[Rfam]
RNA sequence: GGUUAUUUGGCAGUGUAGUUAGCUGAUUACGAUUCGGACCUACAGUAAUCACUAACCUCACUACCAGCUGAAC
Numbered sequence: 001g002g003u004u005a006u007u008u009g010g011c012a013g014u015g016u017a018g019u020u021a022g023c024u025g026a027u028u029a030c031g032a033u034u035c036g037g038a039c040c041u042a043c044a045g046u047a048a049u050c051a052c053u054a055a056c057c058u059c060a061c062u063a064c065c066a067g068c069u070g071a072a073c
Stems, first nucleotide, its partner, number of pairs: 003071003009065002012062004018056005024051007